[Rfam]
RNA sequence: CGGCGCUUGAGGCUUCUGCCUCAUGUUGUCGGCAGCAGUGCUGAACGUUGGUGAGGCAGAAAGCAGAAAAGCCCCGAAAGUUAAUUUCCAUUAACCCCCGAGGCCCUGCAUGCAAGAGAACAUUCAGGAUAGCCUCUUACCCGCCGCAAGGCAAGGAGAAGAAGGCCAUG
Numbered sequence: 001c002g003g004c005g006c007u008u009g010a011g012g013c014u015u016c017u018g019c020c021u022c023a024u025g026u027u028g029u030c031g032g033c034a035g036c037a038g039u040g041c042u043g044a045a046c047g048u049u050g051g052u053g054a055g056g057c058a059g060a061a062a063g064c065a066g067a068a069a070a071g072c073c074c075c076g077a078a079a080g081u082u083a084a085u086u087u088c089c090a091u092u093a094a095c096c097c098c099c100g101a102g103g104c105c106c107u108g109c110a111u112g113c114a115a116g117a118g119a120a121c122a123u124u125c126a127g128g129a130u131a132g133c134c135u136c137u138u139a140c141c142c143g144c145c146g147c148a149a150g151g152c153a154a155g156g157a158g159a160a161g162a163a164g165g166c167c168a169u170g
Base pairs, nucleotide, nucleotide: 002074003073005072006071007070008069012064013063014062015060016059017058018057019056020055021054022053023052024051076099080095081094082093083092084091085090100136101135102134103133104132105128106127107126108125110123111122112121140165141164144161